[Rfam]
RNA sequence: CUGGCAAGAACCUUUUGAAUCAAGUAGUGGAGCGAUUCAAAAGGUUCUAACAA
Numbered sequence: 001c002u003g004g005c006a007a008g009a010a011c012c013u014u015u016u017g018a019a020u021c022a023a024g025u026a027g028u029g030g031a032g033c034g035a036u037u038c039a040a041a042a043g044g045u046u047c048u049a050a051c052a053a
Base pairs, nucleotide, nucleotide: 004051007048008047009046010045011044012043013042014041015040016039017038018037019036020035021034
RNA: Plastid-ccsA-ndhD-2 3UTR RNA